[Rfam]
RNA sequence: UAGCCGUUUGGAACUUUUUGAAUCACCAUAUUAUUUGAUUCAAGAAGUUCUUACAAA
Numbered sequence: 001u002a003g004c005c006g007u008u009u010g011g012a013a014c015u016u017u018u019u020g021a022a023u024c025a026c027c028a029u030a031u032u033a034u035u036u037g038a039u040u041c042a043a044g045a046a047g048u049u050c051u052u053a054c055a056a057a
Base pairs, nucleotide, nucleotide: 008053010051011050012049013048014047015046016045017044018043019042020041021040022039023038024037025036
Plastid-ccsA-ndhD-1 3UTR RNA: a 57-nucleotide sequence from Manihot esculenta. On this family, see Richter et al., Plant Commun 2023: "Retrograde signaling in plants: A critical review focusing on the GUN pathway and beyond". Clan: Plastid-ccsA_ndhD 3UTR RNA clan. The source organism's lineage runs through Eukaryota, rosids, Malpighiales, Crotonoideae and Manihot. The base pairs follow the family's consensus structure, which was predicted with LocARNA. A search with the family's covariance model found it, with a score of 50 bits. From the family's description: Plastid-ccsA-ndhD-1 is a non-coding RNA (ncRNA) recognised in plastids.